[Rfam]
Source information:
The record is a 101-nucleotide sequence from Phyllobacterium endophyticum, which matches "rpsB sRNA" in Rfam. The organism belongs to Phyllobacterium, within Bacteria. Rfam classes the family as a small RNA. A search with the family's covariance model found it, with a score of 52 bits. For this family Rfam cites "Identification of candidate structured RNAs in the marine organism 'Candidatus Pelagibacter ubique'" (Meyer et al., BMC Genomics, 2009). The base pairs follow the family's consensus structure, which is taken from published work.

RNA sequence: CACACACGGGAUUUGGGUUGAUAUCGGGAGAAAUCCGAUAUGGCCUCCGGUGGCGGGUUUCCCGCCUCUUCCCGUGGAGGUUAAACCGGAAAAGGAAAUUA
Numbered sequence: 001c002a003c004a005c006a007c008g009g010g011a012u013u014u015g016g017g018u019u020g021a022u023a024u025c026g027g028g029a030g031a032a033a034u035c036c037g038a039u040a041u042g043g044c045c046u047c048c049g050g051u052g053g054c055g056g057g058u059u060u061c062c063c064g065c066c067u068c069u070u071c072c073c074g075u076g077g078a079g080g081u082u083a084a085a086c087c088g089g090a091a092a093a094g095g096a097a098a099u100u101a
Stems, first nucleotide, its partner, number of pairs: 001079001003077001005076007015045002025037002028035001052066006